[Rfam]
RNA sequence: AUCACCGCAGGGCAAACCGGUCGAAAGACCGGGACGCAAAGCUUCCGGCCUAACAGAGGUUUUCCUCUCAUGGUAGCGGGGCCGCCUUC
Numbered sequence: 001a002u003c004a005c006c007g008c009a010g011g012g013c014a015a016a017c018c019g020g021u022c023g024a025a026a027g028a029c030c031g032g033g034a035c036g037c038a039a040a041g042c043u044u045c046c047g048g049c050c051u052a053a054c055a056g057a058g059g060u061u062u063u064c065c066u067c068u069c070a071u072g073g074u075a076g077c078g079g080g081g082c083c084g085c086c087u088u089c
Base pairs, nucleotide, nucleotide: 012037013036017032018031019030020029021028022027041082042081043080045079046078047077048074049073050072055068056067057066058065